Rfam assigns this 64-nucleotide sequence from Lathyrus oleraceus to the family "MIR5291 microRNA precursor family".
Taxonomically the source falls in Lathyrus (Eukaryota, Embryophyta, Fabales, Fabeae).

RNA sequence: GAUGGAUUUAAUCCAAUCCAUUAACUUAGAUUUUAUGUAAUGGAUGGAUUGGAUGGAUUUUUUU
Numbered sequence: 001g002a003u004g005g006a007u008u009u010a011a012u013c014c015a016a017u018c019c020a021u022u023a024a025c026u027u028a029g030a031u032u033u034u035a036u037g038u039a040a041u042g043g044a045u046g047g048a049u050u051g052g053a054u055g056g057a058u059u060u061u062u063u064u
Base pairs, nucleotide, nucleotide: 004060005059006058007057008056011054012053013052014051015050016049017048018047019046020045021044022043027037028036
Gene Ontology terms of the family: RISC complex and miRNA-mediated post-transcriptional gene silencing.